[Rfam]
Rfam assigns this 98-nucleotide RNA sequence to the family "pemK RNA".

RNA sequence: AUAAUGAUACUCCCUUACAGCCACAGUCCGAGCGUUUGAAGCGUCGCAGGCAAUGGGGAGGGCCGCGUGAGAACCACGCAGGGGUGAGAUUCCCGUGG
Number, nucleotide and partner (000 for none) at each position: 001a000002u000003a000004a000005u000006g000007a000008u000009a000010c000011u000012c095013c061014c060015u059016u058017a000018c000019a000020g000021c000022c000023a000024c000025a000026g000027u000028c000029c000030g000031a000032g000033c000034g000035u000036u000037u000038g000039a000040a000041g000042c000043g000044u000045c000046g000047c000048a000049g000050g000051c000052a000053a000054u000055g000056g000057g000058g016059a015060g014061g013062g000063c081064c000065g079066c000067g077068u076069g075070a000071g000072a000073a000074c000075c069076a068077c067078g000079c065080a000081g063082g094083g093084g092085u000086g000087a000088g000089a000090u000091u000092c084093c083094c082095g012096u000097g000098g000
The base pairs follow the family's consensus structure, which is taken from published work. By type it is a cis-regulatory element.